[Rfam]
RNA sequence: CAGACUCGAUGUAACUGGCGACGAGUGGAUACAACCACAAUGGAGCAUCGAGAGAUACGGCCGGUCGCCUGGGCAAAGAGC
Numbered sequence: 001c002a003g004a005c006u007c008g009a010u011g012u013a014a015c016u017g018g019c020g021a022c023g024a025g026u027g028g029a030u031a032c033a034a035c036c037a038c039a040a041u042g043g044a045g046c047a048u049c050g051a052g053a054g055a056u057a058c059g060g061c062c063g064g065u066c067g068c069c070u071g072g073g074c075a076a077a078g079a080g081c
Stems, first nucleotide, its partner, number of pairs: 005052008015042001017069005025038004060074003
RNA: ZMP/ZTP riboswitch aptamer (pfl RNA motif)
Organism: Paenibacillus hemerocallicola